[Rfam]
Shown here is an 87-nucleotide RNA from Gossypium davidsonii, a member of the family "MIR7486 microRNA precursor family". Rfam 15.1 lists 10,132 matches to the family in 36 species. The organism belongs to Gossypium, within Eukaryota.
RNA sequence: CACGUCAGUGCGAGUUGCUGCCAUGACAGCAAAUCGCAUCCUUGAGGGCGCGAUUUGUUGCCAUGUCAGCAAUUUGCGCUGACGUGA
Dot-bracket structure: ((((((((((((((((((((..(((.(((((((((((..((....))..))))))))))).)))..)))))))))))))))))))).